The family of this 101-nucleotide RNA sequence from Aeribacillus pallidus is "Guanidine-I riboswitch aptamer". A search with the family's covariance model found it, with a score of 92 bits. Pairs were carried over by alignment from the consensus structure. On this family, see Barrick et al., Proc Natl Acad Sci U S A 2004: "New RNA motifs suggest an expanded scope for riboswitches in bacterial genetic control".
[Rfam]
Nucleotides: 101
Stems, first nucleotide, its partner, number of pairs: 007058006015048002020045002022042001023039006059074005076096001078099001082094003
Number, partner (000 for none) and nucleotide at each position: 001000u002000g003000u004000a005000a006000a007058g008057u009056u010055u011054u012053c013000u014000a015048g016047g017000g018000u019000u020045c021044c022042g023039c024038a025037a026036g027035u028034g029000c030000c031000g032000u033000u034028c035027g036026c037025u038024u039023g040000g041000a042022c043000u044021g045020g046000u047016c048015c049000g050000a051000g052000a053012g054011a055010a056009a057008a058007c059074g060073c061072a062071c063070a064000a065000a066000u067000u068000g069000c070063u071062g072061u073060g074059u075000a076096c077000a078099c079000g080000g081000a082094a083093g084092g085000a086000u087000a088000a089000a090000a091000g092084c093083c094082u095000g096076g097000g098000a099078g100000a101000a